Source information:
This 84-nucleotide RNA from Chinchilla lanigera belongs to the Rfam family "mir-449 microRNA precursor family".
[Rfam]
RNA sequence: UGUGUGUGAUGGGUUGGCAGUGUAUUGUUAGCUGGUUGAAUAUAUGUUAGCAGCUAACAUACAACUGCUAUCUUAUUGCAUAUA
Numbered sequence: 001u002g003u004g005u006g007u008g009a010u011g012g013g014u015u016g017g018c019a020g021u022g023u024a025u026u027g028u029u030a031g032c033u034g035g036u037u038g039a040a041u042a043u044a045u046g047u048u049a050g051c052a053g054c055u056a057a058c059a060u061a062c063a064a065c066u067g068c069u070a071u072c073u074u075a076u077u078g079c080a081u082a083u084a
Stems, first nucleotide, its partner, number of pairs: 001084013015070007022062003027058008036049001041046001
Record summary:
The family's consensus secondary structure was predicted with RNAalifold. The match comes from Rfam's covariance-model search (77 bits). Its Rfam clan is "mir-34 clan". A reference for the family is Linsen et al. (2010), "Small RNA expression and strain specificity in the rat", BMC Genomics. Lineage of the source: Eukaryota > Opisthokonta > Tetrapoda > Theria > Chinchilla.